[Rfam]
Molybdenum/Tungsten riboswitch aptamer (Moco RNA motif): a 177-nucleotide sequence from Alteromonadaceae bacterium M269.
It scores 64 bits against the family's covariance model.
Gene Ontology terms of the family: molybdenum ion binding, tungstate binding and regulation of gene expression.

RNA sequence: ACACCAUUUUAACUCCGAGCUUUCAUCUCUAAAGUGCUUGUCUUUGAUUACUAGCGUCAUGAGUUGUUAGCCGUGGCGAGAGCCACCUGGGUUGUGCGAGAAAUCAAUCAGCCUCCCGGAACGAGCUGGUUAAUUCCAGUAACGUUCAAUUUGGAAAGGUGUUAUUAAACAUGCAAU
Numbered sequence: 001a002c003a004c005c006a007u008u009u010u011a012a013c014u015c016c017g018a019g020c021u022u023u024c025a026u027c028u029c030u031a032a033a034g035u036g037c038u039u040g041u042c043u044u045u046g047a048u049u050a051c052u053a054g055c056g057u058c059a060u061g062a063g064u065u066g067u068u069a070g071c072c073g074u075g076g077c078g079a080g081a082g083c084c085a086c087c088u089g090g091g092u093u094g095u096g097c098g099a100g101a102a103a104u105c106a107a108u109c110a111g112c113c114u115c116c117c118g119g120a121a122c123g124a125g126c127u128g129g130u131u132a133a134u135u136c137c138a139g140u141a142a143c144g145u146u147c148a149a150u151u152u153g154g155a156a157a158g159g160u161g162u163u164a165u166u167a168a169a170c171a172u173g174c175a176a177u
Base pairs, nucleotide, nucleotide: 011163012162013161015159016158019071020070021069024066025065027063028062029061034057035056036055037054038053073086074085075084076083077082089114090113091112092111093110094109098105099104115154116153